[Rfam]
RNA sequence: UGCACCGUGGGCGAUGGAUCCCGCCCGGGCUCUGAUCGGGCCCGAACCGCCGAGUCGGCUGAUGGUUCCUGUCCAGCA
Number, nucleotide and partner (000 for none) at each position: 001u000002g000003c000004a000005c000006c000007g000008u000009g000010g025011g024012c023013g022014a000015u000016g069017g068018a067019u000020c065021c064022c013023g012024c011025c010026c000027g000028g000029g000030c000031u000032c000033u000034g000035a000036u000037c000038g000039g000040g000041c000042c000043c000044g000045a000046a000047c000048c000049g059050c058051c057052g000053a000054g000055u000056c000057g051058g050059c049060u000061g000062a000063u000064g021065g020066u000067u018068c017069c016070u000071g000072u000073c000074c000075a000076g000077c000078a000
RNA: Fluoride riboswitch aptamer (crcB RNA motif)
Organism: Raineyella fluvialis